[Rfam]
The family of this 83-nucleotide sequence from Ottowia flava is "SAH (S-adenosyl-L-homocysteine) riboswitch aptamer". The literature on the family includes a 2008 paper in Mol Cell by Wang et al., "Riboswitches that sense S-adenosylhomocysteine and activate genes involved in coenzyme recycling". Rfam 15.1 lists 1,354 matches to the family in 1,132 species. The family's consensus secondary structure is taken from published work.
RNA sequence: CUAUCCGAGGAGCGUUGCAGCGUCUGCCAACUGGCCGGGCGUGAGGCUCGGACACCUGACAACGGCAACGACGCUCACCCACU
Numbered sequence: 001c002u003a004u005c006c007g008a009g010g011a012g013c014g015u016u017g018c019a020g021c022g023u024c025u026g027c028c029a030a031c032u033g034g035c036c037g038g039g040c041g042u043g044a045g046g047c048u049c050g051g052a053c054a055c056c057u058g059a060c061a062a063c064g065g066c067a068a069c070g071a072c073g074c075u076c077a078c079c080c081a082c083u
Base pairs, nucleotide, nucleotide: 002054004052005051006050007049008048021041022040023039024038025037026036